[Rfam]
Nucleotides: 107
Base pairs, nucleotide, nucleotide: 005098006097007096009094010093011092012091016086017085018084022035024033025032036061037060039057040056041055066080067079068078069077070076
Number, partner (000 for none) and nucleotide at each position: 001000u002000a003000c004000u005098u006097u007096u008000u009094u010093c011092g012091g013000c014000a015000c016086a017085c018084a019000c020000u021000u022035u023000a024033a025032c026000c027000a028000c029000u030000a031000u032025g033024u034000c035022a036061g037060u038000a039057u040056u041055a042000a043000c044000g045000a046000a047000c048000u049000a050000a051000u052000a053000c054000g055041u056040a057039a058000g059000u060037g061036c062000u063000u064000u065000u066080a067079u068078g069077u070076a071000c072000u073000u074000c075000g076070u077069g078068c079067a080066u081000u082000a083000c084018u085017g086016u087000u088000a089000a090000u091012c092011u093010g094009a095000u096007g097006a098005a099000u100000a101000a102000u103000a104000u105000a106000u107000u